[Rfam]
RNA sequence: UGCAGGUAUUUUACGAUUAAGAAGCAACUGCCUCUUUUACAAAUCGUUUAUUAAUCG
Numbered sequence: 001u002g003c004a005g006g007u008a009u010u011u012u013a014c015g016a017u018u019a020a021g022a023a024g025c026a027a028c029u030g031c032c033u034c035u036u037u038u039a040c041a042a043a044u045c046g047u048u049u050a051u052u053a054a055u056c057g
Stems, first nucleotide, its partner, number of pairs: 019036004024031002